[Rfam]
RNA sequence: GGGCUGGCUUUAGCUCAGCGGUUCCUUCAACUCUCUAAAAACCCAGCCCCUCCGGGGGUUUGAGACCCGUGGGCGCUGUCUGGCCUUUCG
Numbered sequence: 001g002g003g004c005u006g007g008c009u010u011u012a013g014c015u016c017a018g019c020g021g022u023u024c025c026u027u028c029a030a031c032u033c034u035c036u037a038a039a040a041a042c043c044c045a046g047c048c049c050c051u052c053c054g055g056g057g058g059u060u061u062g063a064g065a066c067c068c069g070u071g072g073g074c075g076c077u078g079u080c081u082g083g084c085c086u087u088u089c090g
Stems, first nucleotide, its partner, number of pairs: 002085006013074004018070004026064005
Vault RNA: a 90-nucleotide RNA from Terrapene triunguis.
Taxonomically the source falls in Terrapene (Eukaryota, Vertebrata, Tetrapoda, Emydidae).
Rfam's curators write: This family of RNAs are found as part of the enigmatic vault ribonucleoprotein complex. The complex consists of a major vault protein (MVP), two minor vault proteins (VPARP and TEP1), and several small untranslated RNA molecules.